[Rfam]
RNA sequence: UCAGAAUUACUUGGGGGCCAUAGCAGAAGCAUUCAUGUCACAACCCCUGUCAGGUACUACCUGGUAAUACCUGUGAAUUCUGCU
Numbered sequence: 001u002c003a004g005a006a007u008u009a010c011u012u013g014g015g016g017g018c019c020a021u022a023g024c025a026g027a028a029g030c031a032u033u034c035a036u037g038u039c040a041c042a043a044c045c046c047c048u049g050u051c052a053g054g055u056a057c058u059a060c061c062u063g064g065u066a067a068u069a070c071c072u073g074u075g076a077a078u079u080c081u082g083c084u
Stems, first nucleotide, its partner, number of pairs: 014047004022084007029041001051073006